RNA sequence: ACGGCGAAACAGGGGUGCUUCGCGCGCAUCGGUACAGGGCGCGGCGAGGCUGAGAGAGACCCUUUGCACCCGAUCCGGGUAAUACCGGCGAGGGAAGUUUCCGGAGAACGCGC
Dot-bracket structure: .....(((((((((.((((((((....................)))))))......)..)))).....(((...((((......))))...)))..)))))............